The record is an 84-nucleotide sequence from Streptomyces sp. NTH33, which matches "Streptomyces RNA 6106" in Rfam.
By type it is a small RNA.
[Rfam]
RNA sequence: ACGUCGCCCAGUGCGGCGUGUCCGGCCCGGGAGGGCCGGUACAGCGGGGGUGGUGCCGUGUCGGCGCAGCACCACCCCCGCGCC
Numbered sequence: 001a002c003g004u005c006g007c008c009c010a011g012u013g014c015g016g017c018g019u020g021u022c023c024g025g026c027c028c029g030g031g032a033g034g035g036c037c038g039g040u041a042c043a044g045c046g047g048g049g050g051u052g053g054u055g056c057c058g059u060g061u062c063g064g065c066g067c068a069g070c071a072c073c074a075c076c077c078c079c080g081c082g083c084c
Stems, first nucleotide, its partner, number of pairs: 001019007020042002023039001025037001026035003044081013058067003

Description:
About the family: Identified by deep sequencing of transcriptome at the end of exponential growth phase. A search with the family's covariance model found it, with a score of 74 bits.